[Rfam]
RNA sequence: CUGGGAUGAUGCAGUUUAGCCAAAUCAGACACGAAUGUGCUCCAGAAGGCAUUGUCUUUUUAAGCCUGCAAUAUUUGCUUGGCUGAGUUGUUGUAAGUAAUGCAAUGACAUAGCUUUGCCUUCUGUUGAAGCGCAUCUCUGAUGAUAACAGCGAGAUCGGUUGCUAACUGACCAGA
Numbered sequence: 001c002u003g004g005g006a007u008g009a010u011g012c013a014g015u016u017u018a019g020c021c022a023a024a025u026c027a028g029a030c031a032c033g034a035a036u037g038u039g040c041u042c043c044a045g046a047a048g049g050c051a052u053u054g055u056c057u058u059u060u061u062a063a064g065c066c067u068g069c070a071a072u073a074u075u076u077g078c079u080u081g082g083c084u085g086a087g088u089u090g091u092u093g094u095a096a097g098u099a100a101u102g103c104a105a106u107g108a109c110a111u112a113g114c115u116u117u118g119c120c121u122u123c124u125g126u127u128g129a130a131g132c133g134c135a136u137c138u139c140u141g142a143u144g145a146u147a148a149c150a151g152c153g154a155g156a157u158c159g160g161u162u163g164c165u166a167a168c169u170g171a172c173c174a175g176a
Base pairs, nucleotide, nucleotide: 001175002174003173004172
Rfam assigns this 176-nucleotide RNA from Eucalyptus grandis to the family "small nucleolar RNA snoR127". The match comes from Rfam's covariance-model search (72 bits). Rfam 15.1 lists 273 matches to the family in 170 species. Taxonomically the source falls in Eucalyptus (Eukaryota, Streptophytina, Tracheophyta, Spermatophyta).